Overview: Rfam assigns this 379-nucleotide part of an RNA from Chromobacterium violaceum to the family "Bacterial large subunit ribosomal RNA". NCBI's taxonomy places the organism under Bacteria, Betaproteobacteria, Neisseriales, Chromobacterium, Chromobacterium violaceum. The family's consensus secondary structure is taken from published work.
RNA sequence: GAUAAAGCGGGUGAAAAGCCCGCUCGCCGAAAGCCCAAGGUUUCCUACGCAACGUUCAUCGGCGUAGGGUGAGUCGGCCCCUAAGGCGAGGCUGAAAAGCGUAGUCGAUGGGAAACGGGUUAAAAUUCCCGUACUUUUGUGUAGUGCGAUGUGGGGACGGAGAAGGUUAGGUCAUCAGACUGUUGGAAUAGUCUGUUUAAGCCGGUAGGCGUGAGGGGUAGGCAAAUCCGCCCUUCUUUAACGCCGAGACGUGAUGACGAGGGUCUACGGACCUGAAGUGACUGAUACCACGCUUCCAGGAAAAGCCACUAAGCUUCAGCUACACAAGAACCGUACCGCAAACCGACACAGGUGGGCAGGAUGAGAAUUCUAAGGCGCU
Numbered sequence: 001g002a003u004a005a006a007g008c009g010g011g012u013g014a015a016a017a018g019c020c021c022g023c024u025c026g027c028c029g030a031a032a033g034c035c036c037a038a039g040g041u042u043u044c045c046u047a048c049g050c051a052a053c054g055u056u057c058a059u060c061g062g063c064g065u066a067g068g069g070u071g072a073g074u075c076g077g078c079c080c081c082u083a084a085g086g087c088g089a090g091g092c093u094g095a096a097a098a099g100c101g102u103a104g105u106c107g108a109u110g111g112g113a114a115a116c117g118g119g120u121u122a123a124a125a126u127u128c129c130c131g132u133a134c135u136u137u138u139g140u141g142u143a144g145u146g147c148g149a150u151g152u153g154g155g156g157a158c159g160g161a162g163a164a165g166g167u168u169a170g171g172u173c174a175u176c177a178g179a180c181u182g183u184u185g186g187a188a189u190a191g192u193c194u195g196u197u198u199a200a201g202c203c204g205g206u207a208g209g210c211g212u213g214a215g216g217g218g219u220a221g222g223c224a225a226a227u228c229c230g231c232c233c234u235u236c237u238u239u240a241a242c243g244c245c246g247a248g249a250c251g252u253g254a255u256g257a258c259g260a261g262g263g264u265c266u267a268c269g270g271a272c273c274u275g276a277a278g279u280g281a282c283u284g285a286u287a288c289c290a291c292g293c294u295u296c297c298a299g300g301a302a303a304a305g306c307c308a309c310u311a312a313g314c315u316u317c318a319g320c321u322a323c324a325c326a327a328g329a330a331c332c333g334u335a336c337c338g339c340a341a342a343c344c345g346a347c348a349c350a351g352g353u354g355g356g357c358a359g360g361a362u363g364a365g366a367a368u369u370c371u372a373a374g375g376c377g378c379u
Stems, first nucleotide, its partner, number of pairs: 006024006025377004033357004039337002044068006053061002075333003080111002085106003089102001091100003115132005135329011146314002151309004159296004165289003170283005176195005197257002201252002208245003213236007221229002261274005343352002359371003